[Rfam]
RNA sequence: AGGCUUUGUAAUUUGGGCGUUUCACUCUAUAUUCAAUGUGCCGCCUCAAAGCGGCUAUGGCGAUAAACGACGUCGGAAUAAGCUCUUUGGACCCGGGGGCGGUACCCGGCGCCUCCACCCAAGCCCGUCGCGAUGAUUUGCGGCGGGCUUCGGCGGGGGCGAAAUAGGUUCGACAGGGAGUGUAAAGGACUGUCUUUUGCCCGGCAUUGUACCGCCGUUAUCGGGCUAUUCUUAUAGUUGCCAAUGACAACUAUGCUCCGGUCGCCGUCGCCGCGUAAUGCGGCGUUAGCACCGAAAUCAAGUCCUUGGGGGUAGCACUUCAAGGCGGGGCUCGGAGGCGCCUGGCAACAGAAGCCUCCACU
Numbered sequence: 001a002g003g004c005u006u007u008g009u010a011a012u013u014u015g016g017g018c019g020u021u022u023c024a025c026u027c028u029a030u031a032u033u034c035a036a037u038g039u040g041c042c043g044c045c046u047c048a049a050a051g052c053g054g055c056u057a058u059g060g061c062g063a064u065a066a067a068c069g070a071c072g073u074c075g076g077a078a079u080a081a082g083c084u085c086u087u088u089g090g091a092c093c094c095g096g097g098g099g100c101g102g103u104a105c106c107c108g109g110c111g112c113c114u115c116c117a118c119c120c121a122a123g124c125c126c127g128u129c130g131c132g133a134u135g136a137u138u139u140g141c142g143g144c145g146g147g148c149u150u151c152g153g154c155g156g157g158g159g160c161g162a163a164a165u166a167g168g169u170u171c172g173a174c175a176g177g178g179a180g181u182g183u184a185a186a187g188g189a190c191u192g193u194c195u196u197u198u199g200c201c202c203g204g205c206a207u208u209g210u211a212c213c214g215c216c217g218u219u220a221u222c223g224g225g226c227u228a229u230u231c232u233u234a235u236a237g238u239u240g241c242c243a244a245u246g247a248c249a250a251c252u253a254u255g256c257u258c259c260g261g262u263c264g265c266c267g268u269c270g271c272c273g274c275g276u277a278a279u280g281c282g283g284c285g286u287u288a289g290c291a292c293c294g295a296a297a298u299c300a301a302g303u304c305c306u307u308g309g310g311g312g313u314a315g316c317a318c319u320u321c322a323a324g325g326c327g328g329g330g331c332u333c334g335g336a337g338g339c340g341c342c343u344g345g346c347a348a349c350a351g352a353a354g355c356c357u358c359c360a361c362u
Base pairs, nucleotide, nucleotide: 040055041054042053043052044051059201060200061199062198063197069194070193071192072190073189074188083180084179085178087176088175089174093109094108095107096106097105110161111160112159113158114157115156116155202217203216204215205214207228209226212224213223328343329342330341331340334359335358336357337356338355339354
Source information
Rfam assigns this 362-nucleotide RNA sequence from Methylocella silvestris to the family "Alphaproteobacteria transfer-messenger RNA". The family's consensus secondary structure is taken from published work. It is annotated as a non-coding RNA gene. On this family, see Zwieb et al., Nucleic Acids Res 2003: "tmRDB (tmRNA database)". The organism belongs to Methylocella silvestris, within Bacteria. From the family's description: Bacterial tmRNA, also known as 10Sa RNA or SsrA, is named for its dual tRNA and mRNA-like properties. Rfam links the family to the GO term RNA catabolic process. The family is grouped with related families in Rfam's "tRNA clan".